[Rfam]
RNA: Glycine riboswitch aptamer
RNA sequence: GGCCAUAAAGCGGGAGAGCGCGGUUUACGCCGCCGCCGAAGGAGCAACCACCCCGGAAACUCUCAGGCAACAGGGACCGCUUUAGGGAA
Numbered sequence: 001g002g003c004c005a006u007a008a009a010g011c012g013g014g015a016g017a018g019c020g021c022g023g024u025u026u027a028c029g030c031c032g033c034c035g036c037c038g039a040a041g042g043a044g045c046a047a048c049c050a051c052c053c054c055g056g057a058a059a060c061u062c063u064c065a066g067g068c069a070a071c072a073g074g075g076a077c078c079g080c081u082u083u084a085g086g087g088a089a
Base pairs, nucleotide, nucleotide: 006084007083008082009081010080011079012078013077020033021032022031023030035068036067037066038064039063042062043061044060048056049055